[Rfam]
RNA: Small nucleolar RNA SNORA75
Organism: Denticeps clupeoides
RNA sequence: GUCUUCUCAUGAGCUCCUCUCUGCCAGUCAGUGGCGGUGGAUGGAUUCGCAAGAGAAGUAGACUAACGUCACAAUUAAACAGGGACCUCUUUCUUUGGUUGGAGUUGCCCAUGUCUGAUGUGGAACAUGC
Dot-bracket structure: ..((((((....(((((...(((((.......))))).....)))...))..))))))..........(((((.............((((..........))))..............))))).......
Numbered sequence: 001g002u003c004u005u006c007u008c009a010u011g012a013g014c015u016c017c018u019c020u021c022u023g024c025c026a027g028u029c030a031g032u033g034g035c036g037g038u039g040g041a042u043g044g045a046u047u048c049g050c051a052a053g054a055g056a057a058g059u060a061g062a063c064u065a066a067c068g069u070c071a072c073a074a075u076u077a078a079a080c081a082g083g084g085a086c087c088u089c090u091u092u093c094u095u096u097g098g099u100u101g102g103a104g105u106u107g108c109c110c111a112u113g114u115c116u117g118a119u120g121u122g123g124a125a126c127a128u129g130c
Stems, first nucleotide, its partner, number of pairs: 003058006013050002015045003021037005069123005087104004